RNA sequence: UGGGAAACUGAUACAUGGGUAGUUCACAAUGAUGUGCUACUCAUCACUAGCUUUCCCAAGAUAAUUUUUGCUUUCUGAUGACCGGGGCGAAUUGAGGGAAAUCGCAACGGACAGAUACGGAGCAGACAAUC
Numbered sequence: 001u002g003g004g005a006a007a008c009u010g011a012u013a014c015a016u017g018g019g020u021a022g023u024u025c026a027c028a029a030u031g032a033u034g035u036g037c038u039a040c041u042c043a044u045c046a047c048u049a050g051c052u053u054u055c056c057c058a059a060g061a062u063a064a065u066u067u068u069u070g071c072u073u074u075c076u077g078a079u080g081a082c083c084g085g086g087g088c089g090a091a092u093u094g095a096g097g098g099a100a101a102u103c104g105c106a107a108c109g110g111a112c113a114g115a116u117a118c119g120g121a122g123c124a125g126a127c128a129a130u131c
Stems, first nucleotide, its partner, number of pairs: 002057006015044004022037002025034001068125007082110003087105004